[Rfam]
RNA: Interferon gamma 5' UTR regulatory element
RNA sequence: CAUUGUUCUGAUCAUUGGCAGAUCAGCUAUUAGGAAAGAAAAAAUCAGCCAAGUCCUUUGGCCCUGAUCAACUUUACACAGGAGCUACUAAUUUCAGCGACUUUGGCCUAACUCUCUCUGAAACAAUGAAUUUUACAAGUUAUAUCUUAGCUUUUCAGCUUUGCAUCAUU
Numbered sequence: 001c002a003u004u005g006u007u008c009u010g011a012u013c014a015u016u017g018g019c020a021g022a023u024c025a026g027c028u029a030u031u032a033g034g035a036a037a038g039a040a041a042a043a044a045u046c047a048g049c050c051a052a053g054u055c056c057u058u059u060g061g062c063c064c065u066g067a068u069c070a071a072c073u074u075u076a077c078a079c080a081g082g083a084g085c086u087a088c089u090a091a092u093u094u095c096a097g098c099g100a101c102u103u104u105g106g107c108c109u110a111a112c113u114c115u116c117u118c119u120g121a122a123a124c125a126a127u128g129a130a131u132u133u134u135a136c137a138a139g140u141u142a143u144a145u146c147u148u149a150g151c152u153u154u155u156c157a158g159c160u161u162u163g164c165a166u167c168a169u170u
Base pairs, nucleotide, nucleotide: 009070010069011068012067013066014065015121016120017119018118020115021114022113026107027106028105029104032102033101042094043093044092045091047089048088052086053085054084057082058081059080060079122170123169126166127165128164132144134142135141149160150159151158152157